[Rfam]
RNA sequence: AGAGUAAGUCAGCUUAAUCCAGCACAUAAGUUAAAGCUGGAGCGGAGAAACCAAAUUUUGGGGCGUAUCUUUCAGAAAGUGACCAUUUAAGAGCAAAAAGUGAAAAAUUAAUCAAUAUUCAACUCAUCACUUAGCACUCAAAACUCACUAUUCCUGAAAGAGGGACAUCUCUCAGUCCUAGCCCGUCAGCUAACUUCGUAAGCAUUGAGAGGAGACUGA
Numbered sequence: 001a002g003a004g005u006a007a008g009u010c011a012g013c014u015u016a017a018u019c020c021a022g023c024a025c026a027u028a029a030g031u032u033a034a035a036g037c038u039g040g041a042g043c044g045g046a047g048a049a050a051c052c053a054a055a056u057u058u059u060g061g062g063g064c065g066u067a068u069c070u071u072u073c074a075g076a077a078a079g080u081g082a083c084c085a086u087u088u089a090a091g092a093g094c095a096a097a098a099a100g101u102g103a104a105a106a107a108u109u110a111a112u113c114a115a116u117a118u119u120c121a122a123c124u125c126a127u128c129a130c131u132u133a134g135c136a137c138u139c140a141a142a143a144c145u146c147a148c149u150a151u152u153c154c155u156g157a158a159a160g161a162g163g164g165a166c167a168u169c170u171c172u173c174a175g176u177c178c179u180a181g182c183c184c185g186u187c188a189g190c191u192a193a194c195u196u197c198g199u200a201a202g203c204a205u206u207g208a209g210a211g212g213a214g215a216c217u218g219a
Stems, first nucleotide, its partner, number of pairs: 012203003018041006042199006052060002061184003069160007163178004